[Rfam]
RNA sequence: GAAAGUAAACGAGGCAAUCGCCGGUGGUGUACCGUAAGGUCCCACGGGAGGAAAGUCCGAGCUCCACAGGGCAGGGUGCCGGCUAACAGCCGGUGGGGGCGACCCUAAGGAUAGUGCCACAGAAAUGGAGACCGCCGAUGGGAACAGAUCGUUCCACAGGCAAGGAUGCAACGGUGCGGUAAGAGCGCACCAGCAGCAUGGAGACAUGCUGGCUAGGUAAACCCCACCCGGAGCAAGACCAUAAAUGGGAUCCGCGCCUAGAGCGCGAGCUGUGGCCCGCAGUGAUCCCGGGUUGGUCGCUUGAGCGAUGCAGCAAUGCAUCGCCUAGACAGAUGAUUGCCACUCCAAGGGUGGGAGGCGUCACGACAAACGCCGUCCAACCACCAGGAGGACAGAACUCGGCUUACAGUUUGCUUUCCUGU
Dot-bracket structure: (((((((((((.(((((((.((.((((.(..........).)))).))....[[[.[[[[[((((...[[[[.((((((((((.....)))))(((((....)))).)((...(((((.............(((((..((((..........))))..)))..)).......((((((.......)))))).((((((((....))))))).)..)))..)))))))))))))...((((......((((((................(((((.]]]]))))))))))).....))))......((((((((....))))))))..........)))))))........................................................]]]]]]]].).))))))))))....

Shown here is a 422-nucleotide sequence from Melghirimyces thermohalophilus, a member of the family "Bacterial RNase P class A". Rfam links the family to the GO terms ribonuclease P activity, tRNA processing and dimeric ribonuclease P complex.